[Rfam]
RNA sequence: UCCCCGAUAGCUCAGUUGGUAGAGCAACUGACUGUUAAUCAGUGGGUCCGUGGUUCGAGUCCACGUCGGGGAG
Dot-bracket structure: (((((((..((((........)))).(((((.......))))).....(((((.......)))))))))))).
Description:
The record is a 73-nucleotide RNA sequence from Thiorhodovibrio frisius, which matches "tRNA" in Rfam. The family is grouped with related families in Rfam's "tRNA clan".